[Rfam]
RNA sequence: CAGAGCUGUGGAGUGUGACAAUGGUGUUUGUGUCUAAACUAUCAAACGCCAUUAUCACACUAAAUAGCUACUA
Numbered sequence: 001c002a003g004a005g006c007u008g009u010g011g012a013g014u015g016u017g018a019c020a021a022u023g024g025u026g027u028u029u030g031u032g033u034c035u036a037a038a039c040u041a042u043c044a045a046a047c048g049c050c051a052u053u054a055u056c057a058c059a060c061u062a063a064a065u066a067g068c069u070a071c072u073a
Base pairs, nucleotide, nucleotide: 012061013060014059015058016057017056018055020053021052022051023050024049025048026047027046028045029044030043

Source information: Shown here is a 73-nucleotide RNA sequence from Macaca mulatta, a member of the family "mir-122 microRNA precursor family". For this family Rfam cites "Identification of tissue-specific microRNAs from mouse" (Lagos-Quintana et al., Curr Biol, 2002). Its family is annotated with miRNA-mediated post-transcriptional gene silencing and RISC complex in the Gene Ontology.